[Rfam]
RNA sequence: GCAAAUGUGUGCCGUCUACACACGUUUGCCGUCUGCUGAGCGCUGUCCGAUUUGACACAGGACAGCAGAGACGAGAGGA
Numbered sequence: 001g002c003a004a005a006u007g008u009g010u011g012c013c014g015u016c017u018a019c020a021c022a023c024g025u026u027u028g029c030c031g032u033c034u035g036c037u038g039a040g041c042g043c044u045g046u047c048c049g050a051u052u053u054g055a056c057a058c059a060g061g062a063c064a065g066c067a068g069a070g071a072c073g074a075g076a077g078g079a
Base pairs, nucleotide, nucleotide: 001029002028003027004026005025006024007023008022009021010020011019031072032071033070034069036068037067042066043065044064045063046062047061048060
Record summary: Rfam assigns this 79-nucleotide sequence to the family "aspS RNA". The family's RNA type in Rfam is cis-regulatory element. The sequence is in the family's curated seed alignment. Pairs were carried over by alignment from the consensus structure, which is taken from published work.